[Rfam]
RNA sequence: AACACCUGGGGAUUUUGUUAAAAUGCAGUAGGUCUGGGGUGGGGCCUGAGAUUUUGCAUUUCUAACAAGCUCCCUGGUGAUGCCAA
Numbered sequence: 001a002a003c004a005c006c007u008g009g010g011g012a013u014u015u016u017g018u019u020a021a022a023a024u025g026c027a028g029u030a031g032g033u034c035u036g037g038g039g040u041g042g043g044g045c046c047u048g049a050g051a052u053u054u055u056g057c058a059u060u061u062c063u064a065a066c067a068a069g070c071u072c073c074c075u076g077g078u079g080a081u082g083c084c085a086a
Stems, first nucleotide, its partner, number of pairs: 003079003009073003014069007021061003025057004033051003
Dot-bracket structure: ..(((...(((..((((((((((.((((....(((.............)))..)))).))).))))))).)))...))).......
The record is an 86-nucleotide RNA from Eschrichtius robustus, which matches "mir-544 microRNA precursor family" in Rfam.
It scores 69 bits against the family's covariance model.
The literature on the family includes a 2010 paper in Genes Dev by Chiang et al., "Mammalian microRNAs: experimental evaluation of novel and previously annotated genes".
Lineage of the source: Eukaryota > Artiodactyla > Whippomorpha > Mysticeti > Eschrichtius.